[Rfam]
RNA sequence: UAGCAGUAGGGAGGGGGCCGUUACACUGUAAGAGAUGUUGUCUGAAGUCUCACAGUGAACCGGUCUCUUUCCCUGCUGCUUC
Number, nucleotide and partner (000 for none) at each position: 001u000002a000003g000004c000005a000006g076007u075008a074009g073010g072011g000012a000013g000014g067015g066016g065017g064018c063019c062020g061021u000022u000023a000024c057025a056026c055027u054028g053029u052030a000031a000032g051033a050034g049035a000036u000037g000038u000039u000040g000041u000042c000043u000044g000045a000046a000047g000048u000049c034050u033051c032052a029053c028054a027055g026056u025057g024058a000059a000060c000061c020062g019063g018064u017065c016066u015067c014068u000069u000070u000071c000072c010073c009074u008075g007076c006077u000078g000079c000080u000081u000082c000